RNA sequence: GUAUGGUUGCCUUGUGAUGUGGCUUCAUUUGAGCUUUAAACGGCGAGAAGUUGCAACCUUUCGGUAGUCAUCUAUUUGCAAGAUUGGCUUGAUUUUGGGCCACUCUUUUAUGCGACGCUCACUCGGGU
Numbered sequence: 001g002u003a004u005g006g007u008u009g010c011c012u013u014g015u016g017a018u019g020u021g022g023c024u025u026c027a028u029u030u031g032a033g034c035u036u037u038a039a040a041c042g043g044c045g046a047g048a049a050g051u052u053g054c055a056a057c058c059u060u061u062c063g064g065u066a067g068u069c070a071u072c073u074a075u076u077u078g079c080a081a082g083a084u085u086g087g088c089u090u091g092a093u094u095u096u097g098g099g100c101c102a103c104u105c106u107u108u109u110a111u112g113c114g115a116c117g118c119u120c121a122c123u124c125g126g127g128u
Base pairs, nucleotide, nucleotide: 003071004070005069006068007067008066009065018055019054020053021052023050024049025048026047033044034043035042085102086101087100088099089098090097